[Rfam]
RNA sequence: AAUGCUACUAUGGGGGCCAUAGCAGAAGUGUUCACAUUGUGACCCCAUCAGGUAAUACCUAGUAAUACCUGCAAAUUCUGCU
Number, nucleotide and partner (000 for none) at each position: 001a000002a000003u000004g000005c000006u000007a000008c000009u000010a000011u000012g000013g046014g045015g044016g043017c000018c041019a000020u000021a082022g081023c080024a079025g078026a077027a076028g040029u039030g038031u000032u000033c000034a000035c000036a000037u000038u030039g029040u028041g018042a000043c016044c015045c014046c013047a000048u000049c071050a070051g069052g068053u067054a066055a000056u000057a000058c000059c000060u000061a000062g000063u000064a000065a000066u054067a053068c052069c051070u050071g049072c000073a000074a000075a000076u027077u026078c025079u024080g023081c022082u021
Shown here is an 82-nucleotide RNA sequence from Alligator sinensis, a member of the family "Mammalian CPEB3 ribozyme".